[Rfam]
RNA sequence: GGACGAACCCUUGGAGAGAUCCACUCUGUACUAUAGUACAGAAAAUGGACGCCGAAGGCGCAAAUAUAAAGCAAAUUUAUGUGAAACGCUCAGGCAAAAGGACAGGGGAGAAAAG
Numbered sequence: 001g002g003a004c005g006a007a008c009c010c011u012u013g014g015a016g017a018g019a020u021c022c023a024c025u026c027u028g029u030a031c032u033a034u035a036g037u038a039c040a041g042a043a044a045a046u047g048g049a050c051g052c053c054g055a056a057g058g059c060g061c062a063a064a065u066a067u068a069a070a071g072c073a074a075a076u077u078u079a080u081g082u083g084a085a086a087c088g089c090u091c092a093g094g095c096a097a098a099a100g101g102a103c104a105g106g107g108g109a110g111a112a113a114a115g
Base pairs, nucleotide, nucleotide: 008108009107010106011105012104013103020049021048022047023046051095052094053093054091055090058089059088060087064082065081066080067079068078069077070076

Glycine riboswitch aptamer: a 115-nucleotide sequence from Pseudactinobacillus ducreyi. About the family: This family represents the bacterial glycine riboswitch. Glycine riboswitches usually consist of two metabolite-binding aptamers domains with similar structures in tandem. The aptamers cooperatively bind glycine to regulate the expression of downstream genes. In Bacillus subtilis, this riboswitch is found upstream of the gcvT operon which controls glycine degradation. Rfam links the family to the GO term glycine biosynthetic process.